Selenocysteine transfer RNA: an 86-nucleotide sequence from Nyctibius bracteatus.
The source organism's lineage runs through Eukaryota, Dipnotetrapodomorpha, Archosauria, Nyctibiidae and Nyctibius.
Its family is annotated with triplet codon-amino acid adaptor activity in the Gene Ontology.
[Rfam]
RNA sequence: GCUCAGAUGACCCUCAGUGGUCUGGAGUGCAGGCUUCAAACCUGUAGCUGUCUAGUGAGAGAGUGGUUCAUUUCUACCUUUCAGGC
Numbered sequence: 001g002c003u004c005a006g007a008u009g010a011c012c013c014u015c016a017g018u019g020g021u022c023u024g025g026a027g028u029g030c031a032g033g034c035u036u037c038a039a040a041c042c043u044g045u046a047g048c049u050g051u052c053u054a055g056u057g058a059g060a061g062a063g064u065g066g067u068u069c070a071u072u073u074c075u076a077c078c079u080u081u082c083a084g085g086c
Stems, first nucleotide, its partner, number of pairs: 001086003006081002009078001012027001014025004028046006048061002051058002063077004